[Rfam]
RNA sequence: ACCUAGCUGCGGAUAACCUCUACAUUCAACCGAUCCUGCAUCUGGACAUCGCAGCACGGACAUCGCACAUGGAACAGGUCGGGGAGGGGUUUAGUGGGUAGGCGUCGAUUCGCCGGCAGUAUGUCGAUGUGAUCGAUGAAUCCCACACUAUCCGGGUACCGAGAGGCUACCCGGGGGGUCUUGCGAAGAUUCUCCUCCUCGUUAAC
Numbered sequence: 001a002c003c004u005a006g007c008u009g010c011g012g013a014u015a016a017c018c019u020c021u022a023c024a025u026u027c028a029a030c031c032g033a034u035c036c037u038g039c040a041u042c043u044g045g046a047c048a049u050c051g052c053a054g055c056a057c058g059g060a061c062a063u064c065g066c067a068c069a070u071g072g073a074a075c076a077g078g079u080c081g082g083g084g085a086g087g088g089g090u091u092u093a094g095u096g097g098g099u100a101g102g103c104g105u106c107g108a109u110u111c112g113c114c115g116g117c118a119g120u121a122u123g124u125c126g127a128u129g130u131g132a133u134c135g136a137u138g139a140a141u142c143c144c145a146c147a148c149u150a151u152c153c154g155g156g157u158a159c160c161g162a163g164a165g166g167c168u169a170c171c172c173g174g175g176g177g178g179u180c181u182u183g184c185g186a187a188g189a190u191u192c193u194c195c196u197c198c199u200c201g202u203u204a205a206c
Stems, first nucleotide, its partner, number of pairs: 008056003063204001065202002081200004086195003094146005103138008148178002151175003
RNA: R2 RNA element
Organism: Anopheles stephensi